[Rfam]
RNA sequence: GAGAAAAAGCAGAGGCCACCGCUUCUCGCCUUGUAACUUAGAAGUUGCUGGGCUAAAGAACGUUGAAUGGAUGUUGAAGAUCCAAAAAAAGCGGGUGGCGUGUGCCAUCCGCUUUUCUGCAUUCUC
Numbered sequence: 001g002a003g004a005a006a007a008a009g010c011a012g013a014g015g016c017c018a019c020c021g022c023u024u025c026u027c028g029c030c031u032u033g034u035a036a037c038u039u040a041g042a043a044g045u046u047g048c049u050g051g052g053c054u055a056a057a058g059a060a061c062g063u064u065g066a067a068u069g070g071a072u073g074u075u076g077a078a079g080a081u082c083c084a085a086a087a088a089a090a091g092c093g094g095g096u097g098g099c100g101u102g103u104g105c106c107a108u109c110c111g112c113u114u115u116u117c118u119g120c121a122u123u124c125u126c
Base pairs, nucleotide, nucleotide: 011026012025013024014023015022016021028053029052030051033048034047035046036045037044090113091112092111093110094109095108096107097106098105099104
The record is a 126-nucleotide sequence from Pediococcus acidilactici, which matches "Ribosomal protein L20 leader" in Rfam. The organism belongs to Pediococcus acidilactici, within Bacteria. A reference for the family is Zengel and Lindahl (1994), "Diverse mechanisms for regulating ribosomal protein synthesis in Escherichia coli", Prog Nucleic Acid Res Mol Biol. The family's consensus secondary structure was predicted with CMfinder. Its family is annotated with regulation of gene expression in the Gene Ontology. The match comes from Rfam's covariance-model search (66 bits). Rfam classes the family as a cis-regulatory leader.